[Rfam]
The family of this 194-nucleotide RNA from Nicotiana tabacum is "Enterobacterial sRNA STnc540". The family's consensus secondary structure was predicted with WAR.
RNA sequence: AAAGAUAUGGGCAUUUGUGCGAUACUGCGCAAGCUGCUAGGUGACAAGUAGGUGUGUCACCUACUUGCCUAAAUGAGAGCCCAAAAAAUGGGCCAUUUAGGGUCGUCCAAAGAGGCCUUUUAAAGGCCUAUUUUUUUUUCAUAUAUUAGACUUAAAAUAAAGCAUAAUAACCAUACAUAAGCUCUGCAAAAAAA
Numbered sequence: 001a002a003a004g005a006u007a008u009g010g011g012c013a014u015u016u017g018u019g020c021g022a023u024a025c026u027g028c029g030c031a032a033g034c035u036g037c038u039a040g041g042u043g044a045c046a047a048g049u050a051g052g053u054g055u056g057u058c059a060c061c062u063a064c065u066u067g068c069c070u071a072a073a074u075g076a077g078a079g080c081c082c083a084a085a086a087a088a089u090g091g092g093c094c095a096u097u098u099a100g101g102g103u104c105g106u107c108c109a110a111a112g113a114g115g116c117c118u119u120u121u122a123a124a125g126g127c128c129u130a131u132u133u134u135u136u137u138u139u140c141a142u143a144u145a146u147u148a149g150a151c152u153u154a155a156a157a158u159a160a161a162g163c164a165u166a167a168u169a170a171c172c173a174u175a176c177a178u179a180a181g182c183u184c185u186g187c188a189a190a191a192a193a194a
Base pairs, nucleotide, nucleotide: 009082010081011080012079016031017030018029019028020027021026033068034067036065038063039062040061041060042059043058044057083139084138085137086136087135088134109133110132111131113129114128115127116126117125118124119123